[Rfam]
RNA sequence: UACUGAAAAAGGCAAACUUAUUGAAAGAUAGGGGCGCAAAGUUAUGGGCCUAAGGUAUUGAACUAUGGCAGCCAAACCACCGGU
Numbered sequence: 001u002a003c004u005g006a007a008a009a010a011g012g013c014a015a016a017c018u019u020a021u022u023g024a025a026a027g028a029u030a031g032g033g034g035c036g037c038a039a040a041g042u043u044a045u046g047g048g049c050c051u052a053a054g055g056u057a058u059u060g061a062a063c064u065a066u067g068g069c070a071g072c073c074a075a076a077c078c079a080c081c082g083g084u
Stems, first nucleotide, its partner, number of pairs: 012037002017032006041077003045074003048069003055063002
The record is an 84-nucleotide RNA sequence from Paenibacillus sp. Leaf72, which matches "c-di-GMP-I riboswitch aptamer" in Rfam. Taxonomically the source falls in Paenibacillus (Bacteria, Bacillati, Caryophanales, Paenibacillaceae).